[Rfam]
RNA: mir-87 microRNA precursor family
RNA sequence: CAUUCGCGCCUGUAUCUUGCUGAACCGUAUUUAUUGCAAUUUUCAUUCCCGGUUGAGCAAAAUUUCAGGUGUGUGAGAAA
Number, nucleotide and partner (000 for none) at each position: 001c000002a000003u077004u076005c075006g074007c071008g070009c069010c068011u067012g066013u000014a063015u062016c000017u060018u059019g000020c057021u056022g000023a054024a000025c052026c051027g050028u000029a000030u000031u000032u000033a000034u000035u000036g000037c000038a000039a000040u000041u000042u000043u000044c000045a000046u000047u000048c000049c000050c027051g026052g025053u000054u023055g000056a021057g020058c000059a018060a017061a000062a015063u014064u000065u000066c012067a011068g010069g009070u008071g007072u000073g000074u006075g005076a004077g003078a000079a000080a000